[Rfam]
RNA: mir-574 microRNA precursor family
Nucleotides: 079
Base pairs, nucleotide, nucleotide: 008071009070010069011068014067015066017064018063019062020061022059024057025056026055027054028053029052032049033048034047035046
Number, partner (000 for none) and nucleotide at each position: 001000a002000g003000g004000c005000c006000c007000g008071g009070a010069g011068a012000a013000a014067g015066a016000a017064g018063c019062a020061g021000g022059g023000u024057c025056u026055g027054a028053u029052c030000c031000g032049c033048a034047g035046c036000c037000u038000c039000c040000a041000u042000g043000g044000c045000a046035g047034c048033u049032g050000u051000u052029g053028a054027u055026c056025a057024g058000c059022c060000c061020u062019u063018g064017c065000c066015u067014c068011u069010c070009u071008u072000u073000c074000u075000c076000u077000c078000c079000g